RNA sequence: AAUUUCGGGUAAUUGCGGUCUUCGUAAGGAAGGCUGAGGAAAGUCCAUGCUCGCACAAGCUGAGAUGCUUGUAGUGUUCGUGCUUAGCGAAAAAAUAAGCUAAGGCAAUCAAUCGAUUGACGGCAGAAAAAAAGGCUAAGGACUUUGUCUAUGCCUGAGUAUUCUUGAAAGUGCCACAGUGACGAAGCAGACGGGGAAACCUUUCUGGUGGAACGCGGUAAACCCCUCGAGCGAGCAACCCAAACUUUGGUAGGGGCACUCUUUCCAAGGAAAUGAACGAGGGAAAGAGGCAGAAAUGCAGACAGAUAAUUACCUCCGCUAUCAGAGGCCUGACUCCGAUAGCGAGACAGAACAUGGCUUACAGAA
Numbered sequence: 001a002a003u004u005u006c007g008g009g010u011a012a013u014u015g016c017g018g019u020c021u022u023c024g025u026a027a028g029g030a031a032g033g034c035u036g037a038g039g040a041a042a043g044u045c046c047a048u049g050c051u052c053g054c055a056c057a058a059g060c061u062g063a064g065a066u067g068c069u070u071g072u073a074g075u076g077u078u079c080g081u082g083c084u085u086a087g088c089g090a091a092a093a094a095a096u097a098a099g100c101u102a103a104g105g106c107a108a109u110c111a112a113u114c115g116a117u118u119g120a121c122g123g124c125a126g127a128a129a130a131a132a133a134g135g136c137u138a139a140g141g142a143c144u145u146u147g148u149c150u151a152u153g154c155c156u157g158a159g160u161a162u163u164c165u166u167g168a169a170a171g172u173g174c175c176a177c178a179g180u181g182a183c184g185a186a187g188c189a190g191a192c193g194g195g196g197a198a199a200c201c202u203u204u205c206u207g208g209u210g211g212a213a214c215g216c217g218g219u220a221a222a223c224c225c226c227u228c229g230a231g232c233g234a235g236c237a238a239c240c241c242a243a244a245c246u247u248u249g250g251u252a253g254g255g256g257c258a259c260u261c262u263u264u265c266c267a268a269g270g271a272a273a274u275g276a277a278c279g280a281g282g283g284a285a286a287g288a289g290g291c292a293g294a295a296a297u298g299c300a301g302a303c304a305g306a307u308a309a310u311u312a313c314c315u316c317c318g319c320u321a322u323c324a325g326a327g328g329c330c331u332g333a334c335u336c337c338g339a340u341a342g343c344g345a346g347a348c349a350g351a352a353c354a355u356g357g358c359u360u361a362c363a364g365a366a
Stems, first nucleotide, its partner, number of pairs: 004366003007362001008314007016036006041360003045357005050235005055072006078230003082226001083104006105121001106119005122225002125165004133156004140150003171223002173219003188207004193202003239255003259289007290299003317344007
This 366-nucleotide RNA sequence from Trichococcus palustris belongs to the Rfam family "Bacterial RNase P class B". Ribonuclease P (RNase P) is a ubiquitous endoribonuclease, found in archaea, bacteria and eukarya as well as chloroplasts and mitochondria. Its best characterised activity is the generation of mature 5'-ends of tRNAs by cleaving the 5'-leader elements of precursor-tRNAs. The literature on the family includes a 1999 paper in Nucleic Acids Res by Brown, "The Ribonuclease P Database".